The record is a 74-nucleotide sequence from Ornithorhynchus anatinus, which matches "mir-1421 microRNA precursor family" in Rfam. Pairs were carried over by alignment from the consensus structure, which was predicted with RNAalifold.
RNA sequence: UGGUAUGAACAGGUUAUUCGCAGUGCAGUGUGAUAUUGGAAUAUGCUGCAUCGCGUGUAACCUCCCUACACCGU
Dot-bracket structure: ..((.((...(((((((.(((.(((((...................))))).))).)))))))...)).))...
Lineage of the source: Eukaryota > Deuterostomia > Gnathostomata > Euteleostomi > Ornithorhynchus.